[Rfam]
RNA sequence: ACUGCUGCAAUAGCCAUAGCAGACGUGCUCACAUCAUGGCCCUGUCAGACUCUAAUGAAUCUGCAAAUUCUGCU
Numbered sequence: 001a002c003u004g005c006u007g008c009a010a011u012a013g014c015c016a017u018a019g020c021a022g023a024c025g026u027g028c029u030c031a032c033a034u035c036a037u038g039g040c041c042c043u044g045u046c047a048g049a050c051u052c053u054a055a056u057g058a059a060u061c062u063g064c065a066a067a068u069u070c071u072g073c074u
Base pairs, nucleotide, nucleotide: 013040014039015038018074019073020072021071022070023069025037026036027035046063047062048061049060051058052057
Mammalian CPEB3 ribozyme: a 74-nucleotide RNA sequence from Crocodylus porosus. The base pairs follow the family's consensus structure, which is taken from published work. From the family's description: The mammalian CPEB3 ribozyme is a self cleaving RNA located in the second intron of the CPEB3 gene which belongs to a family of genes regulating messenger RNA polyadenylation. It scores 48 bits against the family's covariance model. Taxonomically the source falls in Crocodylus (Eukaryota, Eumetazoa, Amniota, Sauria).